A member of the RNA family "Selenocysteine transfer RNA" from Romboutsia hominis, 93 nucleotides long. Rfam links the family to the GO term triplet codon-amino acid adaptor activity.

RNA sequence: GGGGAUGGAUGAGUGCCGGUGUGCUCUCUAGUCUUCAAAACUAGUAUGAGGGGUUAAGAGCCUCUUAGGUGGGUUCGACUCCCACGCAUUCCC
Numbered sequence: 001g002g003g004g005a006u007g008g009a010u011g012a013g014u015g016c017c018g019g020u021g022u023g024c025u026c027u028c029u030a031g032u033c034u035u036c037a038a039a040a041c042u043a044g045u046a047u048g049a050g051g052g053g054u055u056a057a058g059a060g061c062c063u064c065u066u067a068g069g070u071g072g073g074u075u076c077g078a079c080u081c082c083c084a085c086g087c088a089u090u091c092c093c
Stems, first nucleotide, its partner, number of pairs: 001093007008085001011026006028044005047067005070084004
The base pairs follow the family's consensus structure, which is taken from published work.